The record is a 46-nucleotide RNA sequence from Methanocaldococcus jannaschii, which matches "flpD RNA" in Rfam. The source organism's lineage runs through Archaea, Methanobacteriota, Methanococcales, Methanocaldococcaceae and Methanocaldococcus jannaschii.
[Rfam]
RNA sequence: CCAGAUGAGGCACCACUCGAAGGCAAUGCCAAAGUGGUGCUGAUGG
Numbered sequence: 001c002c003a004g005a006u007g008a009g010g011c012a013c014c015a016c017u018c019g020a021a022g023g024c025a026a027u028g029c030c031a032a033a034g035u036g037g038u039g040c041u042g043a044u045g046g
Base pairs, nucleotide, nucleotide: 001046002045003044010040011039012038013037016034017033022030023029024028